[Rfam]
RNA sequence: GUUUCAAACCGUUCCAUCGCUGCUAGACUUGAUCUAGGAGAGGAAAGUCCGGACAGUACAGAGCACCGCGCUUCCUAACGGGAAGAGUCCGCCUAAGGCGGAUAUGGAAAGUGCCGCAGAGACAAUACCACCAAGCUUUGGCUUGGAAAGGGUGAAAAGAGUGGGGUAAGAGCCCACAGCUGUAUGUGGUAACAUGUGCAGGUGGUAAACCCCGCGGACUGUAAGGCCAUGUAAACCGAGGCUUGAGAGCUGCUCGCUCGACUCGGAGGGUAGGCUGCUCGAUCCUGUCGGCGACGACAGGGCUAGAUAAAUGAUGGAAGCCCCGAUUUCGAUUGGGGAACAGAAUCCGGCUUAUAGGUUUUACUUUU
Numbered sequence: 001g002u003u004u005c006a007a008a009c010c011g012u013u014c015c016a017u018c019g020c021u022g023c024u025a026g027a028c029u030u031g032a033u034c035u036a037g038g039a040g041a042g043g044a045a046a047g048u049c050c051g052g053a054c055a056g057u058a059c060a061g062a063g064c065a066c067c068g069c070g071c072u073u074c075c076u077a078a079c080g081g082g083a084a085g086a087g088u089c090c091g092c093c094u095a096a097g098g099c100g101g102a103u104a105u106g107g108a109a110a111g112u113g114c115c116g117c118a119g120a121g122a123c124a125a126u127a128c129c130a131c132c133a134a135g136c137u138u139u140g141g142c143u144u145g146g147a148a149a150g151g152g153u154g155a156a157a158a159g160a161g162u163g164g165g166g167u168a169a170g171a172g173c174c175c176a177c178a179g180c181u182g183u184a185u186g187u188g189g190u191a192a193c194a195u196g197u198g199c200a201g202g203u204g205g206u207a208a209a210c211c212c213c214g215c216g217g218a219c220u221g222u223a224a225g226g227c228c229a230u231g232u233a234a235a236c237c238g239a240g241g242c243u244u245g246a247g248a249g250c251u252g253c254u255c256g257c258u259c260g261a262c263u264c265g266g267a268g269g270g271u272a273g274g275c276u277g278c279u280c281g282a283u284c285c286u287g288u289c290g291g292c293g294a295c296g297a298c299a300g301g302g303c304u305a306g307a308u309a310a311a312u313g314a315u316g317g318a319a320g321c322c323c324c325g326a327u328u329u330c331g332a333u334u335g336g337g338g339a340a341c342a343g344a345a346u347c348c349g350g351c352u353u354a355u356a357g358g359u360u361u362u363a364c365u366u367u368u
Stems, first nucleotide, its partner, number of pairs: 001364002006361005011355001012319007020040002023037005045353003049350005054221004061255004066217005071085005086105001087103006106212002111210002113206003128151002131146006161177005180202001181200008225276004236266005247259004283302008
A member of the RNA family "Bacterial RNase P class A" from Cryomorphaceae bacterium 1068, 368 nucleotides long. Lineage of the source: Bacteria > Bacteroidota > Flavobacteriia > Flavobacteriales > Cryomorphaceae. Rfam links the family to the GO terms dimeric ribonuclease P complex, ribonuclease P activity and tRNA processing.